[Rfam]
RNA sequence: CUCUUAUCCCGAGCUGGUGGAGGGACGGGCCCAAUGAAACCCAGCAACCGGCCUCUAGAAAAGCAAUAUGGCUUAUUCUAGGCAAAGGUGCUAACCUGUGGCAAGGAAACCCCCUUGAACGAUAAGAG
Numbered sequence: 001c002u003c004u005u006a007u008c009c010c011g012a013g014c015u016g017g018u019g020g021a022g023g024g025a026c027g028g029g030c031c032c033a034a035u036g037a038a039a040c041c042c043a044g045c046a047a048c049c050g051g052c053c054u055c056u057a058g059a060a061a062a063g064c065a066a067u068a069u070g071g072c073u074u075a076u077u078c079u080a081g082g083c084a085a086a087g088g089u090g091c092u093a094a095c096c097u098g099u100g101g102c103a104a105g106g107a108a109a110c111c112c113c114c115u116u117g118a119a120c121g122a123u124a125a126g127a128g
Base pairs, nucleotide, nucleotide: 001128002127003126004125005124006123007122008121013042016041017040018039022032023031024030026101028099029097043092044091045090046089048088049087051083052082053081102117103116104115105114106113
SAM riboswitch aptamer (S box leader): a 128-nucleotide RNA sequence from Heyndrickxia ginsengihumi. The base pairs follow the family's consensus structure, which is taken from published work. Taxonomically the source falls in Heyndrickxia (Bacteria, Bacillati, Caryophanales, Bacillaceae). It scores 69 bits against the family's covariance model.